[Rfam]
RNA sequence: AGCUGGUGAUGACAAACUUAACUUUUCUGACACCUCGUAUGAGAGCUGAACUCAGCUCCUGAUUCUAAAUCCGAUCUGAGGCUU
Numbered sequence: 001a002g003c004u005g006g007u008g009a010u011g012a013c014a015a016a017c018u019u020a021a022c023u024u025u026u027c028u029g030a031c032a033c034c035u036c037g038u039a040u041g042a043g044a045g046c047u048g049a050a051c052u053c054a055g056c057u058c059c060u061g062a063u064u065c066u067a068a069a070u071c072c073g074a075u076c077u078g079a080g081g082c083u084u
Base pairs, nucleotide, nucleotide: 001083002082003081004080045056046055047054048053
Record summary
Rfam assigns this 84-nucleotide RNA from Myripristis murdjan to the family "Small nucleolar RNA SNORD60". By type it is a C/D-box small nucleolar RNA. The family is grouped with related families in Rfam's "SNORD60 clan". Its family is annotated with nucleolus and RNA processing in the Gene Ontology.